[Rfam]
RNA sequence: GCGUCUCCCCCUGGAGAGAAACCCGCCCUGAGCGGGUUCACCGAAGGCGCAACCCGCAGUCGGCCUGCACCACCGCAAGGCCCGCCCGGCGAAUCGCUCAGGUAAAGCGGACAGCGGGGGCCAC
Dot-bracket structure: .....((((.(((......((((((.......)))))).(((((..(((....(((..............................))).....))))).)))........))).)))).....